Rfam assigns this 132-nucleotide RNA from Jaculus jaculus to the family "Small nucleolar RNA SNORA61". Rfam describes the family as follows. ACA61 is a member of the H/ACA class of snoRNA that guide the sites of modification of uridines to pseudouridines. The family's consensus secondary structure was predicted with PFOLD. Rfam links the family to the GO terms RNA processing and nucleolus. A search with the family's covariance model found it, with a score of 130 bits. NCBI's taxonomy places the organism under Eukaryota, Teleostomi, Dipnotetrapodomorpha, Dipodoidea, Jaculus.
[Rfam]
RNA sequence: GCCCUCCUGUUCCCUUUCCCAUCGGAUCCUUGACACUGGUCUUGGUGGUCGUAAAGGAGGAAGAGUGACACUGAAGCUGGCCUCACAGCUAUGUAGUGUGGCAGAUAGCAUGUGGGCUAGGUUCAAACAGGG
Numbered sequence: 001g002c003c004c005u006c007c008u009g010u011u012c013c014c015u016u017u018c019c020c021a022u023c024g025g026a027u028c029c030u031u032g033a034c035a036c037u038g039g040u041c042u043u044g045g046u047g048g049u050c051g052u053a054a055a056g057g058a059g060g061a062a063g064a065g066u067g068a069c070a071c072u073g074a075a076g077c078u079g080g081c082c083u084c085a086c087a088g089c090u091a092u093g094u095a096g097u098g099u100g101g102c103a104g105a106u107a108g109c110a111u112g113u114g115g116g117c118u119a120g121g122u123u124c125a126a127a128c129a130g131g132g
Base pairs, nucleotide, nucleotide: 003060004059005058006057007056019048020047021046022045023044025041026040027039028038077120078119079118080117081116082115083114092110093109094108